[Rfam]
RNA sequence: UUAGCAGAGUUAAAUUAGCUCCUUAGAGUAGUAAUGCUCUAACGCAAAUAGGGGAAAUUGCAAGGAAGUCCAUUAAACUAAUGGGUAAUUUGCAGCGAAGCUUGAUUUGGUGUAUCCCUUUUUUAUAAGAAAGAGAGAGUGAAUCAAGAACGUUCAACGACUAAUCGGUGAGUUACAUCAACAAUAACCCGGACACGAUAACCCUACAACCAGUUAGAUUUAACCGGUUGAUGACAUAGUCUAAGCCCUACUGUAAGGUAGGG
Numbered sequence: 001u002u003a004g005c006a007g008a009g010u011u012a013a014a015u016u017a018g019c020u021c022c023u024u025a026g027a028g029u030a031g032u033a034a035u036g037c038u039c040u041a042a043c044g045c046a047a048a049u050a051g052g053g054g055a056a057a058u059u060g061c062a063a064g065g066a067a068g069u070c071c072a073u074u075a076a077a078c079u080a081a082u083g084g085g086u087a088a089u090u091u092g093c094a095g096c097g098a099a100g101c102u103u104g105a106u107u108u109g110g111u112g113u114a115u116c117c118c119u120u121u122u123u124u125a126u127a128a129g130a131a132a133g134a135g136a137g138a139g140u141g142a143a144u145c146a147a148g149a150a151c152g153u154u155c156a157a158c159g160a161c162u163a164a165u166c167g168g169u170g171a172g173u174u175a176c177a178u179c180a181a182c183a184a185u186a187a188c189c190c191g192g193a194c195a196c197g198a199u200a201a202c203c204c205u206a207c208a209a210c211c212a213g214u215u216a217g218a219u220u221u222a223a224c225c226g227g228u229u230g231a232u233g234a235c236a237u238a239g240u241c242u243a244a245g246c247c248c249u250a251c252u253g254u255a256a257g258g259u260a261g262g263g
Stems, first nucleotide, its partner, number of pairs: 007021006027038003049206004059094006069085005095153002102146001108141002157242001159241005209228003213224004248261005
RNA: Group I catalytic intron